[Rfam]
RNA sequence: UAGGGUGAUCAGCCAUCAGGGUUUGCCUGGAACUGUCCUAUGUCCUAGGACACUGGACAGUUCCAGACAAGCCAGGAAGGCUGAUCAUUGAUACCUC
Numbered sequence: 001u002a003g004g005g006u007g008a009u010c011a012g013c014c015a016u017c018a019g020g021g022u023u024u025g026c027c028u029g030g031a032a033c034u035g036u037c038c039u040a041u042g043u044c045c046u047a048g049g050a051c052a053c054u055g056g057a058c059a060g061u062u063c064c065a066g067a068c069a070a071g072c073c074a075g076g077a078a079g080g081c082u083g084a085u086c087a088u089u090g091a092u093a094c095c096u097c
Stems, first nucleotide, its partner, number of pairs: 001090002005088010020073006027066010038055001041052003
mir-584 microRNA precursor family: a 97-nucleotide RNA sequence from Otolemur garnettii. The sequence is in the family's curated seed alignment. Its family is annotated with RISC complex and miRNA-mediated post-transcriptional gene silencing in the Gene Ontology. Lineage of the source: Eukaryota > Chordata > Gnathostomata > Strepsirrhini > Otolemur. A reference for the family is Lui et al. (2007), "Patterns of known and novel small RNAs in human cervical cancer", Cancer Res.